[Rfam]
RNA sequence: GUCGGCGAAAGCGACUGGCGGCACCGAGGAUGGGUCAACCAUCGGGGAGCUCGUCACGGGGGUCGACCGCCUGGGCGCCCGUG
Numbered sequence: 001g002u003c004g005g006c007g008a009a010a011g012c013g014a015c016u017g018g019c020g021g022c023a024c025c026g027a028g029g030a031u032g033g034g035u036c037a038a039c040c041a042u043c044g045g046g047g048a049g050c051u052c053g054u055c056a057c058g059g060g061g062g063u064c065g066a067c068c069g070c071c072u073g074g075g076c077g078c079c080c081g082u083g
Stems, first nucleotide, its partner, number of pairs: 004055004010051003015046002017071005030042004060078001062076003

This 83-nucleotide RNA from Paractinoplanes atraurantiacus belongs to the Rfam family "ZMP/ZTP riboswitch aptamer (pfl RNA motif)". Pairs were carried over by alignment from the consensus structure, which is taken from published work. Taxonomically the source falls in Paractinoplanes (Bacteria, Bacillati, Actinomycetota, Actinomycetes).